[Rfam]
RNA sequence: CGAUUCACAACGCUGCUUAGUCAGAGUUAAACAGAUCAAACCUCGACCAUGAGUGGCCAUAAAGUUGAUGUCUUGCGCGGUGACAUGCUGCGCCGCCAUCAUGA
Number, nucleotide and partner (000 for none) at each position: 001c000002g000003a000004u000005u056006c055007a054008c053009a028010a027011c026012g000013c024014u023015g022016c000017u000018u000019a000020g000021u000022c015023a014024g013025a000026g011027u010028u009029a000030a000031a000032c000033a000034g000035a050036u049037c000038a000039a000040a000041c045042c000043u000044c000045g041046a000047c000048c000049a036050u035051g000052a000053g008054u007055g006056g005057c000058c000059a000060u000061a000062a000063a000064g000065u000066u104067g000068a102069u101070g100071u000072c095073u000074u092075g091076c090077g088078c087079g086080g000081u000082g000083a000084c000085a000086u079087g078088c077089u000090g076091c075092g074093c000094c000095g072096c000097c000098a000099u000100c070101a069102u068103g000104a066
Shown here is a 104-nucleotide sequence from Vibrio paucivorans, a member of the family "Vibrio RNA AS9". NCBI's taxonomy places the organism under Bacteria, Pseudomonadota, Gammaproteobacteria, Vibrionaceae, Vibrio. The match comes from Rfam's covariance-model search (56 bits). About the family: Identified by direct cloning an parallel sequencing experiments with 5S/tRNA depletion. Confirmed by Northern blot. A reference for the family is Liu et al. (2009), "Experimental discovery of sRNAs in Vibrio cholerae by direct cloning, 5S/tRNA depletion and parallel sequencing", Nucleic Acids Res.